RNA sequence: AUGUAGUGUGACAUGCCCGUUCGGGUUAUUACUCUGAUGAAUUAUUUAUUAAUUAAUUGCUUUGGGAUAACGAGUUGUUACAUUCCC
Numbered sequence: 001a002u003g004u005a006g007u008g009u010g011a012c013a014u015g016c017c018c019g020u021u022c023g024g025g026u027u028a029u030u031a032c033u034c035u036g037a038u039g040a041a042u043u044a045u046u047u048a049u050u051a052a053u054u055a056a057u058u059g060c061u062u063u064g065g066g067a068u069a070a071c072g073a074g075u076u077g078u079u080a081c082a083u084u085c086c087c
Stems, first nucleotide, its partner, number of pairs: 003086001005084009016074001018072004
Dot-bracket structure: ..(.(((((((((..(.((((...............................................)))).).))))))))).).

The record is an 87-nucleotide RNA from Medicago truncatula, which matches "MIR2617 microRNA precursor family" in Rfam.
The family has 3 seed sequences and 1,174 matches in Rfam 15.1.
Its family is annotated with RISC complex and miRNA-mediated post-transcriptional gene silencing in the Gene Ontology.
The family's consensus secondary structure was predicted with RNAalifold.
Lineage of the source: Eukaryota > Mesangiospermae > Hologalegina > Trifolieae > Medicago.